[Rfam]
RNA: ALIL pseudoknot
RNA sequence: CGCGUAUUUUGCCCAGGCGGAGCUCGACCGCCCGUUCCGCAAAUGAUCGCCUUCAUUGACGAUCAUCGCGGUGAGUUUGGGGUCGAGCCGAUCUGCAGGGUGCUGCCGAUUGCCCCU
Numbered sequence: 001c002g003c004g005u006a007u008u009u010u011g012c013c014c015a016g017g018c019g020g021a022g023c024u025c026g027a028c029c030g031c032c033c034g035u036u037c038c039g040c041a042a043a044u045g046a047u048c049g050c051c052u053u054c055a056u057u058g059a060c061g062a063u064c065a066u067c068g069c070g071g072u073g074a075g076u077u078u079g080g081g082g083u084c085g086a087g088c089c090g091a092u093c094u095g096c097a098g099g100g101u102g103c104u105g106c107c108g109a110u111u112g113c114c115c116c117u
Stems, first nucleotide, its partner, number of pairs: 016032005079116004089112002092109002095106004